A member of the RNA family "SR1 sRNA", 169 nucleotides long.
RNA sequence: UGGGAAAAAAAAUAAUUUUUUUUCCUCCACAAUUUCGGCAAUGCCAUUGUCGAAAUUGUGGGGGAAAAAAAAAAAAAAUUUUCCCCAACAAUUUCGGCAAUGCCAUUGCCGAAAUUGUGGGGAAAAAAAAUUGUGGGGAAAAAAAAUUAAUUUUUUUCCCAAACAAUUU
Numbered sequence: 001u002g003g004g005a006a007a008a009a010a011a012a013u014a015a016u017u018u019u020u021u022u023u024c025c026u027c028c029a030c031a032a033u034u035u036c037g038g039c040a041a042u043g044c045c046a047u048u049g050u051c052g053a054a055a056u057u058g059u060g061g062g063g064g065a066a067a068a069a070a071a072a073a074a075a076a077a078a079u080u081u082u083c084c085c086c087a088a089c090a091a092u093u094u095c096g097g098c099a100a101u102g103c104c105a106u107u108g109c110c111g112a113a114a115u116u117g118u119g120g121g122g123a124a125a126a127a128a129a130a131u132u133g134u135g136g137g138g139a140a141a142a143a144a145a146a147u148u149a150a151u152u153u154u155u156u157u158c159c160c161a162a163a164c165a166a167u168u169u
Stems, first nucleotide, its partner, number of pairs: 016071002019069007028060007036052007095111005130167005137160002140157003